[Rfam]
RNA sequence: CCAGGUUUCUAUCGUAUCUUACGGUAAAGAGAAACCGGCUGUACUGGGACAUGACGAAUCUGCUUACUCCAAAAACCGUCGUGCCGUACUGGUUUACUAAGAGAAUUGCAUGAGCAGUAACUUCAGGCCUCACCUAUUG
Numbered sequence: 001c002c003a004g005g006u007u008u009c010u011a012u013c014g015u016a017u018c019u020u021a022c023g024g025u026a027a028a029g030a031g032a033a034a035c036c037g038g039c040u041g042u043a044c045u046g047g048g049a050c051a052u053g054a055c056g057a058a059u060c061u062g063c064u065u066a067c068u069c070c071a072a073a074a075a076c077c078g079u080c081g082u083g084c085c086g087u088a089c090u091g092g093u094u095u096a097c098u099a100a101g102a103g104a105a106u107u108g109c110a111u112g113a114g115c116a117g118u119a120a121c122u123u124c125a126g127g128c129c130u131c132a133c134c135u136a137u138u139g
Base pairs, nucleotide, nucleotide: 001047002046003045004044007041014035015034017032018031019030020029054138057135062130065127075118076117078115079113080112081111082110083109084108086106087105089103090102
Description: CpoB/ybgF ICR thermometer: a 139-nucleotide RNA sequence from Biostraticola tofi. A reference for the family is Righetti et al. (2016), "Temperature-responsive in vitro RNA structurome of Yersinia pseudotuberculosis", Proc Natl Acad Sci U S A. The source organism's lineage runs through Bacteria, Pseudomonadati, Pseudomonadota, Gammaproteobacteria and Biostraticola. Imprinting control region from upstream of cpoB/ybgF (tol/pal system protein).